The record is a 96-nucleotide RNA from Acetitomaculum ruminis, which matches "THF (Tetrahydrofolate) riboswitch aptamer" in Rfam. It scores 77 bits against the family's covariance model. For this family Rfam cites "A disconnect between high-affinity binding and efficient regulation by antifolates and purines in the tetrahydrofolate riboswitch" (Trausch and Batey, Chem Biol, 2014). The family has 101 seed sequences and 747 matches in Rfam 15.1. Tetrahydrofolate (THF) riboswitch was first reported for Ames et al. as an RNA motif in 5' untranslated (5'-UTR)regions of folate transport and biosynthesis genes in Firmicutes genomes.
[Rfam]
RNA sequence: AGCAGAGUAGGUUUCGAAGCGUCAAGUGCCCAUUGAACAGGGAGUUGUCGAUGGUACAAAGGUUAAUCUACGAUUUCGAAAUCGCAUCCCGCUGCU
Numbered sequence: 001a002g003c004a005g006a007g008u009a010g011g012u013u014u015c016g017a018a019g020c021g022u023c024a025a026g027u028g029c030c031c032a033u034u035g036a037a038c039a040g041g042g043a044g045u046u047g048u049c050g051a052u053g054g055u056a057c058a059a060a061g062g063u064u065a066a067u068c069u070a071c072g073a074u075u076u077c078g079a080a081a082u083c084g085c086a087u088c089c090c091g092c093u094g095c096u
Base pairs, nucleotide, nucleotide: 001096002095003094004093005092010083011082012081013080014079015078016077017076018075019074020072021071022070026057027056030054031053032052033051034050035049036048040089041088042087044085061069062068
Dot-bracket structure: (((((....(((((((((((((...((..(((((((...[[[.[...))))))).))...((.....))))).)))))))))).].]]]..)))))